[Rfam]
Record summary: Shown here is a 98-nucleotide sequence from Propithecus coquereli, a member of the family "mir-544 microRNA precursor family". It scores 74 bits against the family's covariance model. The base pairs follow the family's consensus structure, which was predicted with RNAalifold. NCBI's taxonomy places the organism under Eukaryota, Deuterostomia, Dipnotetrapodomorpha, Indriidae, Propithecus.

RNA sequence: AUCACCUGGUCAUCUUGUUAAAAUGCAGAUUCUGAGUCAAUCCAGCUGGGGUGGGGCCUGGGAUUCUGCAUUUCUAACAAGCUCCCAGGUGACGUUGA
Numbered sequence: 001a002u003c004a005c006c007u008g009g010u011c012a013u014c015u016u017g018u019u020a021a022a023a024u025g026c027a028g029a030u031u032c033u034g035a036g037u038c039a040a041u042c043c044a045g046c047u048g049g050g051g052u053g054g055g056g057c058c059u060g061g062g063a064u065u066c067u068g069c070a071u072u073u074c075u076a077a078c079a080a081g082c083u084c085c086c087a088g089g090u091g092a093c094g095u096u097g098a
Base pairs, nucleotide, nucleotide: 003091004090005089009085014081015080016079017078018077019076020075021073022072023071025069026068027067028066029065031063032062033061
Dot-bracket structure: ..(((...(....((((((((((.(((((.(((...........................))).))))).))).)))))))...)...))).......